[Rfam]
RNA: Betaproteobacteria toxic small RNA
Organism: Pandoraea pnomenusa
RNA sequence: UGUCUCCUCCACCCUCCUCCUUUGGUGGAUUUAACCCGGACCCAUUGAGGUUCGGGUUUUUUUUU
Numbered sequence: 001u002g003u004c005u006c007c008u009c010c011a012c013c014c015u016c017c018u019c020c021u022u023u024g025g026u027g028g029a030u031u032u033a034a035c036c037c038g039g040a041c042c043c044a045u046u047g048a049g050g051u052u053c054g055g056g057u058u059u060u061u062u063u064u065u
Stems, first nucleotide, its partner, number of pairs: 008029006033058008